[Rfam]
RNA sequence: CCCGCUCUCGCGGGAGAGACCGGGCCUGGCCCGGCGCUGAAGGCGAAACCGCCCCGGAAACGCUCAAGCAAAAGGACCGCGCGAGCCUC
Numbered sequence: 001c002c003c004g005c006u007c008u009c010g011c012g013g014g015a016g017a018g019a020c021c022g023g024g025c026c027u028g029g030c031c032c033g034g035c036g037c038u039g040a041a042g043g044c045g046a047a048a049c050c051g052c053c054c055c056g057g058a059a060a061c062g063c064u065c066a067a068g069c070a071a072a073a074g075g076a077c078c079g080c081g082c083g084a085g086c087c088u089c
Stems, first nucleotide, its partner, number of pairs: 006084002009081005020034004036069003039065002043063003049057002
Overview: A member of the RNA family "Glycine riboswitch aptamer" from Caulobacter sp. Root655, 89 nucleotides long. It scores 60 bits against the family's covariance model. NCBI's taxonomy places the organism under Bacteria, Pseudomonadati, Alphaproteobacteria, Caulobacteraceae, Caulobacter. Pairs were carried over by alignment from the consensus structure.